[Rfam]
RNA sequence: AUUUCUGUAUCGCUGAAAACCGUAUGGUGCGGGGGACCCGUUUUUUGGGGUGAAUCCUUUUUAGGUAGGGCUACUCAUGGCCCGAAUCCGUCAGCUAACCUCGCAAGCGUUAUUGGGAAGGAAG
Numbered sequence: 001a002u003u004u005c006u007g008u009a010u011c012g013c014u015g016a017a018a019a020c021c022g023u024a025u026g027g028u029g030c031g032g033g034g035g036a037c038c039c040g041u042u043u044u045u046u047g048g049g050g051u052g053a054a055u056c057c058u059u060u061u062u063a064g065g066u067a068g069g070g071c072u073a074c075u076c077a078u079g080g081c082c083c084g085a086a087u088c089c090g091u092c093a094g095c096u097a098a099c100c101u102c103g104c105a106a107g108c109g110u111u112a113u114u115g116g117g118a119a120g121g122a123a124g
Stems, first nucleotide, its partner, number of pairs: 011109004018028001020026001029104006039047002048089003056065003068083004

The family of this 124-nucleotide RNA from Bacillus sp. B-jedd is "c-di-AMP riboswitch aptamer (ydaO/yuaA leader)".